[Rfam]
Nucleotides: 129
Base pairs, nucleotide, nucleotide: 003059004058019047021045022044025040026039027038028037075117076116077115078114079113080112081111090108091107092106
Number, partner (000 for none) and nucleotide at each position: 001000a002000c003059c004058c005000a006000c007000c008000g009000a010000u011000u012000c013000c014000c015000c016000u017000u018000c019047c020000c021045a022044u023000g024000g025040g026039a027038u028037c029000u030000c031000c032000a033000c034000g035000c036000u037028g038027g039026u040025c041000u042000u043000g044022g045021u046000c047019g048000u049000u050000g051000u052000a053000a054000a055000a056000a057000a058004g059003g060000a061000a062000g063000a064000g065000u066000a067000c068000a069000c070000u071000g072000a073000a074000g075117c076116u077115g078114g079113c080112c081111u082000u083000g084000c085000a086000g087000c088000a089000a090108u091107g092106c093000a094000g095000u096000c097000u098000g099000g100000u101000g102000u103000a104000g105000a106092g107091c108090a109000g110000c111081a112080g113079g114078c115077c116076a117075g118000a119000u120000u121000c122000a123000a124000a125000a126000a127000c128000u129000c
Background
The family of this 129-nucleotide RNA sequence from Rattus norvegicus is "Small nucleolar RNA SNORA61". The organism belongs to Rattus, within Eukaryota. Rfam's curators write: ACA61 is a member of the H/ACA class of snoRNA that guide the sites of modification of uridines to pseudouridines. The base pairs follow the family's consensus structure, which was predicted with PFOLD. Rfam classes the family as an H/ACA-box small nucleolar RNA. Rfam links the family to the GO terms RNA processing and nucleolus.